Annotation:
Rfam assigns this 151-nucleotide sequence from Tobamovirus rapae to the family "Tobamovirus internal ribosome entry site (IRES)".
[Rfam]
RNA sequence: GAAUUCGUCGAUUCGGUUGCAGCAUUUAAAGCGGUUGACAAUUUCAGGAAGAGGAAAAAGAAGGUUGAAGAAAGGGAUGUAGUAAGUAAGUAUAAAUAUAGACCGGAGAAAUACGCCGGUCCUGAUUCGUUUAAUUUAAAAGAAGAAAAUG
Numbered sequence: 001g002a003a004u005u006c007g008u009c010g011a012u013u014c015g016g017u018u019g020c021a022g023c024a025u026u027u028a029a030a031g032c033g034g035u036u037g038a039c040a041a042u043u044u045c046a047g048g049a050a051g052a053g054g055a056a057a058a059a060g061a062a063g064g065u066u067g068a069a070g071a072a073a074g075g076g077a078u079g080u081a082g083u084a085a086g087u088a089a090g091u092a093u094a095a096a097u098a099u100a101g102a103c104c105g106g107a108g109a110a111a112u113a114c115g116c117c118g119g120u121c122c123u124g125a126u127u128c129g130u131u132u133a134a135u136u137u138a139a140a141a142g143a144a145g146a147a148a149a150u151g
Stems, first nucleotide, its partner, number of pairs: 025049003030044002034042003083133005089127002091098002099124002101121006

Rfam describes the family as follows. This family represents the Tobamovirus internal ribosome entry site (IRES). IRES elements allow cap and end-independent translation of mRNA in the host cell. The IRES achieves this by mediating the internal initiation of translation by recruiting a ribosomal 43S pre-initiation complex directly to the initiation codon and eliminates the requirement for eIF4F. Rfam's curators put it in the seed alignment. Its family is annotated with ribosome binding in the Gene Ontology. For this family Rfam cites "A tobamovirus genome that contains an internal ribosome entry site functional in vitro" (Ivanov et al., Virology, 1997).